[Rfam]
RNA sequence: CCUGAUCAGAACUUCUAUGGGCUUUCAGAUCUUGCUCGGGAGGUACGCCACUUUCACGUCACCCCGCCGAGGGC
Numbered sequence: 001c002c003u004g005a006u007c008a009g010a011a012c013u014u015c016u017a018u019g020g021g022c023u024u025u026c027a028g029a030u031c032u033u034g035c036u037c038g039g040g041a042g043g044u045a046c047g048c049c050a051c052u053u054u055c056a057c058g059u060c061a062c063c064c065c066g067c068c069g070a071g072g073g074c
Stems, first nucleotide, its partner, number of pairs: 004031004008025003040055001041053004
Dot-bracket structure: ...(((((((............)))..))))........(((((.....)))).)...................
Actinobacteria sRNA Ms_AS-8: a 74-nucleotide sequence from Ornithinimicrobium avium.
A reference for the family is Li et al. (2013), "Identification of small RNAs in Mycobacterium smegmatis using heterologous Hfq", RNA.
Rfam classes the family as a small RNA.